RNA sequence: UUACUGGAUGCUUUAGCUAUUGACAUGUUCUGUCACUCUCUGACAGAGAACAAUUUGUUCUUUGACGAACAAAACAGUUCAAUAGCUAAAGCGUCCACUAAC
Numbered sequence: 001u002u003a004c005u006g007g008a009u010g011c012u013u014u015a016g017c018u019a020u021u022g023a024c025a026u027g028u029u030c031u032g033u034c035a036c037u038c039u040c041u042g043a044c045a046g047a048g049a050a051c052a053a054u055u056u057g058u059u060c061u062u063u064g065a066c067g068a069a070c071a072a073a074a075c076a077g078u079u080c081a082a083u084a085g086c087u088a089a090a091g092c093g094u095c096c097a098c099u100a101a102c
Stems, first nucleotide, its partner, number of pairs: 001101003005097002011091013026076003029069001031067005049059004
mir-8517 microRNA precursor family: a 102-nucleotide sequence from Plutella xylostella. NCBI's taxonomy places the organism under Eukaryota, Arthropoda, Glossata, Ditrysia, Plutella.